[Rfam]
RNA sequence: AACUUAUCAAGAGAGGUGGAGGGACUGGCCCAAUGAAACCCAGCAACCAAUAUGGUUCAUAUACUAUAUGUGGUGCUAAAUCCUGCAGUAUUAAACUGAUAGAUAAGGU
Number, nucleotide and partner (000 for none) at each position: 001a109002a000003c107004u106005u105006a104007u103008c102009a000010a000011g000012a000013g041014a000015g040016g039017u038018g000019g000020a000021g031022g030023g029024a000025c085026u000027g083028g082029c023030c022031c021032a000033a000034u000035g000036a000037a000038a017039c016040c015041c013042a077043g076044c075045a074046a000047c073048c072049a000050a069051u068052a067053u066054g065055g064056u063057u000058c000059a000060u000061a000062u000063a056064c055065u054066a053067u052068a051069u050070g000071u000072g048073g047074u045075g044076c043077u042078a000079a000080a000081u101082c028083c027084u000085g025086c098087a097088g096089u095090a000091u000092u000093a000094a000095a089096c088097u087098g086099a000100u000101a081102g008103a007104u006105a005106a004107g003108g000109u001

This 109-nucleotide RNA sequence from Clostridium neonatale belongs to the Rfam family "SAM riboswitch aptamer (S box leader)".
A search with the family's covariance model found it, with a score of 86 bits.
NCBI's taxonomy places the organism under Bacteria, Bacillati, Bacillota, Clostridiaceae, Clostridium.